[Rfam]
RNA sequence: GGUAGCAUGCCAGAGUGGUUAAUGGGUGGGAUUUGAAUGUCUUCUGUAUCCUAUGGGUUUGCCCGCGCAGGUUCGAAUCCUGCUGCUAUCG
Numbered sequence: 001g002g003u004a005g006c007a008u009g010c011c012a013g014a015g016u017g018g019u020u021a022a023u024g025g026g027u028g029g030g031a032u033u034u035g036a037a038u039g040u041c042u043u044c045u046g047u048a049u050c051c052u053a054u055g056g057g058u059u060u061g062c063c064c065g066c067g068c069a070g071g072u073u074c075g076a077a078u079c080c081u082g083c084u085g086c087u088a089u090c091g
Base pairs, nucleotide, nucleotide: 001090002089003088004087005086006085007084010025011024012023027053028052029051030050031049067083068082069081070080071079
RNA: tRNA